TPP riboswitch aptamer (THI element): a 94-nucleotide sequence from Leucobacter tardus.
About the family: Vitamin B(1) in its active form thiamin pyrophosphate (TPP) is an essential coenzyme that is synthesised by coupling of pyrimidine and thiazole moieties in bacteria. The previously detected thiamin-regulatory element, thi box was extended, resulting in a new, highly conserved RNA secondary structure, the THI element, which is widely distributed in eubacteria and also occurs in some archaea. Analysis of operon structures identified a large number of new candidate thiamin-regulated genes, mostly transporters, in various prokaryotic organisms.

RNA sequence: CCCAACGACACGGGGUGCCGCACCAGCGGCUGAGAUCACACCCGUCGAACCUGAUCUCGUUGAGACGAGCGGAGGGAUGUCGCGAUGAGCGAAC
Numbered sequence: 001c002c003c004a005a006c007g008a009c010a011c012g013g014g015g016u017g018c019c020g021c022a023c024c025a026g027c028g029g030c031u032g033a034g035a036u037c038a039c040a041c042c043c044g045u046c047g048a049a050c051c052u053g054a055u056c057u058c059g060u061u062g063a064g065a066c067g068a069g070c071g072g073a074g075g076g077a078u079g080u081c082g083c084g085a086u087g088a089g090c091g092a093a094c
Stems, first nucleotide, its partner, number of pairs: 006082005011044004016038001017030005050075003056069004

Pairs were carried over by alignment from the consensus structure, which is taken from published work.